[Rfam]
RNA sequence: UCCAUCGUGAGGUGGAAUCUGAAGGAAGCUGGAGGCAAACACUCGACCUGAGAUACACGAAUCCAAUGUGAGGCUAGUACAGUCGGACGAGUCUGCGAAACAAGGCGAAGUCCUAAGCCGCCAAGGGCUGUAUGGGUAUAUUGGACAGGUGCAUGGAUGAAAGUACGCAUC
Numbered sequence: 001u002c003c004a005u006c007g008u009g010a011g012g013u014g015g016a017a018u019c020u021g022a023a024g025g026a027a028g029c030u031g032g033a034g035g036c037a038a039a040c041a042c043u044c045g046a047c048c049u050g051a052g053a054u055a056c057a058c059g060a061a062u063c064c065a066a067u068g069u070g071a072g073g074c075u076a077g078u079a080c081a082g083u084c085g086g087a088c089g090a091g092u093c094u095g096c097g098a099a100a101c102a103a104g105g106c107g108a109a110g111u112c113c114u115a116a117g118c119c120g121c122c123a124a125g126g127g128c129u130g131u132a133u134g135g136g137u138a139u140a141u142u143g144g145a146c147a148g149g150u151g152c153a154u155g156g157a158u159g160a161a162a163g164u165a166c167g168c169a170u171c
Base pairs, nucleotide, nucleotide: 001016002015003014004013005012006011028171030169031168035164036163040159041158043156044155045154046150047149048148049147050146062145063144064143065142066141067140073137074136075135077133078132079131080130081129082128083127085113086112087111088110091106092105093104094103
The record is a 171-nucleotide RNA sequence from Paenibacillus sp. 7541, which matches "Group II catalytic intron D1-D4-3" in Rfam. Rfam 15.1 lists 4,274 matches to the family in 1,585 species. Lineage of the source: Bacteria > Bacillati > Bacillota > Caryophanales > Paenibacillus. It scores 124 bits against the family's covariance model.